Background: A member of the RNA family "TD-1 RNA" from Treponema pedis, 126 nucleotides long. By type it is a cis-regulatory element. The family's consensus secondary structure is taken from published work.
[Rfam]
RNA sequence: GGUUGCCGAUAAAGUUUGCCCUUUCAGGCAAACCUCGUAUUAUUGUAUAUGGUUUUGCUACACAAAACUAUUAUGAAAGAAUAUUUUUCGUAAGUUGAAAUUUACUUACAAAAUAUUUUUAUAGGA
Number, nucleotide and partner (000 for none) at each position: 001g000002g000003u000004u000005g000006c000007c000008g000009a000010u000011a000012a000013a035014g033015u032016u031017u030018g029019c028020c027021c000022u000023u000024u000025c000026a000027g020028g019029c018030a017031a016032a015033c014034c000035u013036c000037g000038u000039a000040u000041u000042a000043u000044u000045g000046u000047a000048u000049a071050u070051g069052g068053u067054u066055u065056u064057g000058c000059u000060a000061c000062a000063c000064a056065a055066a054067a053068c052069u051070a050071u049072u000073a000074u000075g000076a000077a120078a119079g118080a117081a116082u115083a114084u113085u112086u111087u110088u000089c000090g105091u104092a103093a102094g101095u100096u000097g000098a000099a000100a095101u094102u093103u092104a091105c090106u000107u000108a000109c000110a087111a086112a085113a084114u083115a082116u081117u080118u079119u078120u077121a000122u000123a000124g000125g000126a000